[Rfam]
RNA: Alphaproteobacteria transfer-messenger RNA
Organism: Sandarakinorhabdus glacialis
RNA sequence: CCAUUUGAACUCUGCCCGACAAGCGCCUAUAUAGGACGUGUCGGGCUUCGGCCCGUCUAUGGCGAUAAAGUGUGUCGUGAAAUAGAUGCAGCGGACCCGGGGGCAGUACCCGGCGACUCCACCAUUUUCCCCGGUUGUUGCGGGCGGUAUGGGGUCGAACUAGGAUCGACGUGUGUUCAAAGACGAUAUUUUUGCCCGGCCUGAAUGAGCCGUUAAACCGUUUAAAACACCUAAAUGCCAACGACAACGAGGCAUUCGCAAUCGCAGCGUAACCCAAGAUCCUCACGGAUCUAGUUACACUGGCCGAAAGCGCGGUUGGGACUGCACCGGGCAACAGAAGCAGAAACC
Numbered sequence: 001c002c003a004u005u006u007g008a009a010c011u012c013u014g015c016c017c018g019a020c021a022a023g024c025g026c027c028u029a030u031a032u033a034g035g036a037c038g039u040g041u042c043g044g045g046c047u048u049c050g051g052c053c054c055g056u057c058u059a060u061g062g063c064g065a066u067a068a069a070g071u072g073u074g075u076c077g078u079g080a081a082a083u084a085g086a087u088g089c090a091g092c093g094g095a096c097c098c099g100g101g102g103g104c105a106g107u108a109c110c111c112g113g114c115g116a117c118u119c120c121a122c123c124a125u126u127u128u129c130c131c132c133g134g135u136u137g138u139u140g141c142g143g144g145c146g147g148u149a150u151g152g153g154g155u156c157g158a159a160c161u162a163g164g165a166u167c168g169a170c171g172u173g174u175g176u177u178c179a180a181a182g183a184c185g186a187u188a189u190u191u192u193u194g195c196c197c198g199g200c201c202u203g204a205a206u207g208a209g210c211c212g213u214u215a216a217a218c219c220g221u222u223u224a225a226a227a228c229a230c231c232u233a234a235a236u237g238c239c240a241a242c243g244a245c246a247a248c249g250a251g252g253c254a255u256u257c258g259c260a261a262u263c264g265c266a267g268c269g270u271a272a273c274c275c276a277a278g279a280u281c282c283u284c285a286c287g288g289a290u291c292u293a294g295u296u297a298c299a300c301u302g303g304c305c306g307a308a309a310g311c312g313c314g315g316u317u318g319g320g321a322c323u324g325c326a327c328c329g330g331g332c333a334a335c336a337g338a339a340g341c342a343g344a345a346a347c348c
Stems, first nucleotide, its partner, number of pairs: 040057001042055005061196005072189007087175003091172003097113005114157007197212004202224003313329004